[Rfam]
RNA sequence: GGCCUGAUGCCACGUCACUGUUAGCCACGAGCAUUGAGCUGUGAUGCUAUGAUCAGGCCGAGACAAAGCUGAUUCUGGCGUCUCACAAGUUGAUAGGAACCUGGGGACUGCUGUUCCAUCGGUCCACAGAGCCGGUUUCUGUGACUACAUUU
Numbered sequence: 001g002g003c004c005u006g007a008u009g010c011c012a013c014g015u016c017a018c019u020g021u022u023a024g025c026c027a028c029g030a031g032c033a034u035u036g037a038g039c040u041g042u043g044a045u046g047c048u049a050u051g052a053u054c055a056g057g058c059c060g061a062g063a064c065a066a067a068g069c070u071g072a073u074u075c076u077g078g079c080g081u082c083u084c085a086c087a088a089g090u091u092g093a094u095a096g097g098a099a100c101c102u103g104g105g106g107a108c109u110g111c112u113g114u115u116c117c118a119u120c121g122g123u124c125c126a127c128a129g130a131g132c133c134g135g136u137u138u139c140u141g142u143g144a145c146u147a148c149a150u151u152u
Stems, first nucleotide, its partner, number of pairs: 002058007009050001013046006020039003024032002083144005096133002101129003105125005
About this RNA: Rfam assigns this 152-nucleotide RNA sequence to the family "Small nucleolar RNA snoR2/U65". The sequence is in the family's curated seed alignment. The family's consensus secondary structure was predicted with WAR. By type it is an H/ACA-box small nucleolar RNA. Rfam 15.1 lists 908 matches to the family in 230 species. Its Rfam clan is "SNORA65 clan".